[Rfam]
RNA sequence: AAACCGCCCCAUAAGUUUUGCAAUUGUGGCAGUUUUGGCCCCCAGGGCCAACCUGCAAGAAUUUAAAAUAAAUAAAAAAAUAACACGCAACACCUCCCUUAGGGUGCCACAUCAGCGUAGAUCGAGUUAAAAUUGGCUUUGGAUGCCAAAACUGCCACAUGUGCAAAACUUAGCGGACGGUUU
Number, nucleotide and partner (000 for none) at each position: 001a183002a182003a000004c180005c179006g178007c000008c176009c000010c000011a000012u172013a171014a170015g169016u168017u167018u166019u165020g164021c163022a162023a000024u000025u159026g158027u157028g156029g155030c154031a153032g152033u151034u150035u149036u148037g147038g146039c145040c000041c000042c142043c141044a140045g139046g000047g000048c000049c000050a000051a000052c000053c000054u000055g000056c000057a000058a000059g000060a000061a000062u000063u000064u000065a000066a000067a000068a112069u111070a000071a000072a000073u000074a000075a000076a000077a000078a000079a000080a000081u000082a000083a000084c000085a000086c000087g000088c000089a000090a000091c000092a000093c000094c000095u000096c000097c000098c000099u000100u000101a000102g000103g000104g000105u000106g000107c000108c000109a000110c000111a069112u068113c000114a000115g000116c000117g000118u000119a000120g000121a000122u000123c000124g000125a000126g000127u000128u000129a000130a000131a000132a000133u000134u000135g000136g000137c000138u000139u045140u044141g043142g042143a000144u000145g039146c038147c037148a036149a035150a034151a033152c032153u031154g030155c029156c028157a027158c026159a025160u000161g000162u022163g021164c020165a019166a018167a017168a016169c015170u014171u013172a012173g000174c000175g000176g008177a000178c006179g005180g004181u000182u002183u001
RNA: MIR2619 microRNA precursor family
Organism: Medicago truncatula